[Rfam]
RNA: Archaeal RNase P
Organism: Halarchaeum rubridurum
RNA sequence: AGUAGCGGGAGCCCGGCCCCCGUGCGCGCACCCCGCGUGCAUGAGGAAAGUCCCCCCACCAGUCGGGCAGGCGACCGGGCACACGCCCGGGGCGGGAGACCGUCGGCACUGGAACAGAGACGACACGUCUCCGUCCGACCGAUGCGGUGUGCGAACCCGCGGCGACGAAGGCCGUGGGGAGUCAACCCACCGAGGGACGACGACGGAGGAGCGAUGGAACGGCCACCCUCGCCGGUGCAAGUCCGCGCACAGGAAGGUAGCCCGACGUGCCGCGCGGACGCUCAGCCGAAUGCCGGGUCGAACAGAAGGGGGCUUACUCCCCGCAGCU
Numbered sequence: 001a002g003u004a005g006c007g008g009g010a011g012c013c014c015g016g017c018c019c020c021c022g023u024g025c026g027c028g029c030a031c032c033c034c035g036c037g038u039g040c041a042u043g044a045g046g047a048a049a050g051u052c053c054c055c056c057c058a059c060c061a062g063u064c065g066g067g068c069a070g071g072c073g074a075c076c077g078g079g080c081a082c083a084c085g086c087c088c089g090g091g092g093c094g095g096g097a098g099a100c101c102g103u104c105g106g107c108a109c110u111g112g113a114a115c116a117g118a119g120a121c122g123a124c125a126c127g128u129c130u131c132c133g134u135c136c137g138a139c140c141g142a143u144g145c146g147g148u149g150u151g152c153g154a155a156c157c158c159g160c161g162g163c164g165a166c167g168a169a170g171g172c173c174g175u176g177g178g179g180a181g182u183c184a185a186c187c188c189a190c191c192g193a194g195g196g197a198c199g200a201c202g203a204c205g206g207a208g209g210a211g212c213g214a215u216g217g218a219a220c221g222g223c224c225a226c227c228c229u230c231g232c233c234g235g236u237g238c239a240a241g242u243c244c245g246c247g248c249a250c251a252g253g254a255a256g257g258u259a260g261c262c263c264g265a266c267g268u269g270c271c272g273c274g275c276g277g278a279c280g281c282u283c284a285g286c287c288g289a290a291u292g293c294c295g296g297g298u299c300g301a302a303c304a305g306a307a308g309g310g311g312g313c314u315u316a317c318u319c320c321c322c323g324c325a326g327c328u
Base pairs, nucleotide, nucleotide: 001328002327003326005324006323007322008321009320010318011317012297013296014295015294016293017292021043022042023041024040025039026038027037028036029035048315049314050313052312053311054310055309056308057237058236059235060234062262064260066258070233071232072231073230074229075090076089077088078087079086091104092103093102094101095100105228106227110225111224112223126213127212128211129208130207131206132205133204134203135202147190148189241279242278243277244276245270246269247268248267